The family of this 125-nucleotide sequence from Wohlfahrtiimonas chitiniclastica is "FMN riboswitch aptamer (RFN element)". Rfam describes the family as follows. The RFN element is a highly conserved domain that is found frequently in the 5'-untranslated regions of prokaryotic mRNAs that encode for flavin mononucleotide (FMN) biosynthesis and transport proteins. NCBI's taxonomy places the organism under Bacteria, Pseudomonadati, Gammaproteobacteria, Wohlfahrtiimonas, Wohlfahrtiimonas chitiniclastica.

RNA sequence: AUUGAUCUUUGGGGCAAGGUGAGAAGGUAACUUCAAUUCCUGACCGGCGGUGACAGUCCGCGAGCGCAAGCUGACUUGGUGUAAUUCCAAGACCGACAGUAAAGUCUGGAUGGUAAAAGAUGAAU
Numbered sequence: 001a002u003u004g005a006u007c008u009u010u011g012g013g014g015c016a017a018g019g020u021g022a023g024a025a026g027g028u029a030a031c032u033u034c035a036a037u038u039c040c041u042g043a044c045c046g047g048c049g050g051u052g053a054c055a056g057u058c059c060g061c062g063a064g065c066g067c068a069a070g071c072u073g074a075c076u077u078g079g080u081g082u083a084a085u086u087c088c089a090a091g092a093c094c095g096a097c098a099g100u101a102a103a104g105u106c107u108g109g110a111u112g113g114u115a116a117a118a119g120a121u122g123a124a125u
Stems, first nucleotide, its partner, number of pairs: 003123001005121006017041003043105002045095002047061004056093002064071002075091005097108003